[Rfam]
RNA: Vibrio RNA AS7
Organism: Vibrio anguillarum
RNA sequence: GGUGUUUGUAGCAGCAAAUUGCUGCGCUCUUUGAUGUCACCGCCAAUGUGAUAUGGCAAGCCACAGUUAGCAAAUGAAACGAAGGGGCCCCGCUCAAACAUAAUGAUUUCAGCUUCUUCGCUGAGUCGACGAGCACGAGCCGCUGCGGAUGCACCACCCGCGACACCAC
Numbered sequence: 001g002g003u004g005u006u007u008g009u010a011g012c013a014g015c016a017a018a019u020u021g022c023u024g025c026g027c028u029c030u031u032u033g034a035u036g037u038c039a040c041c042g043c044c045a046a047u048g049u050g051a052u053a054u055g056g057c058a059a060g061c062c063a064c065a066g067u068u069a070g071c072a073a074a075u076g077a078a079a080c081g082a083a084g085g086g087g088c089c090c091c092g093c094u095c096a097a098a099c100a101u102a103a104u105g106a107u108u109u110c111a112g113c114u115u116c117u118u119c120g121c122u123g124a125g126u127c128g129a130c131g132a133g134c135a136c137g138a139g140c141c142g143c144u145g146c147g148g149a150u151g152c153a154c155c156a157c158c159c160g161c162g163a164c165a166c167c168a169c
Stems, first nucleotide, its partner, number of pairs: 001167006008161002011025006032056001034054007060071002076154001085146001086144003092140004099133001101131001104128005110123004